Overview: This 201-nucleotide RNA from Aliikangiella coralliicola belongs to the Rfam family "Molybdenum/Tungsten riboswitch aptamer (Moco RNA motif)". Gene Ontology terms of the family: regulation of gene expression, molybdenum ion binding and tungstate binding. Taxonomically the source falls in Aliikangiella (Bacteria, Pseudomonadota, Gammaproteobacteria, Oceanospirillales). The base pairs follow the family's consensus structure, which is taken from published work. The family has 160 seed sequences and 1,248 matches in Rfam 15.1.

RNA sequence: AAGCUGUCAUGACUCCGAGCAUUGUUGGACUAAGUCUGCUUAUUCACCGGUUUAAUCGAUGGUGAAAUAGAUAAGGAUUUAAUAGACCAGGGUUUAUUAAAUAAGCUAGAUAGGUUUACUUUGCCGCAGUUAAAACUGCCAGGGUUAGUUGAGAAAUUGACUGACCUCCCGUGUUUGGAAAGGAGCUUAGUUUGAGUUAUC
Numbered sequence: 001a002a003g004c005u006g007u008c009a010u011g012a013c014u015c016c017g018a019g020c021a022u023u024g025u026u027g028g029a030c031u032a033a034g035u036c037u038g039c040u041u042a043u044u045c046a047c048c049g050g051u052u053u054a055a056u057c058g059a060u061g062g063u064g065a066a067a068u069a070g071a072u073a074a075g076g077a078u079u080u081a082a083u084a085g086a087c088c089a090g091g092g093u094u095u096a097u098u099a100a101a102u103a104a105g106c107u108a109g110a111u112a113g114g115u116u117u118a119c120u121u122u123g124c125c126g127c128a129g130u131u132a133a134a135a136c137u138g139c140c141a142g143g144g145u146u147a148g149u150u151g152a153g154a155a156a157u158u159g160a161c162u163g164a165c166c167u168c169c170c171g172u173g174u175u176u177g178g179a180a181a182g183g184a185g186c187u188u189a190g191u192u193u194g195a196g197u198u199a200u201c
Stems, first nucleotide, its partner, number of pairs: 004194001006192001011187001013185004019124003024119002028116003034111004126139005142167011168178002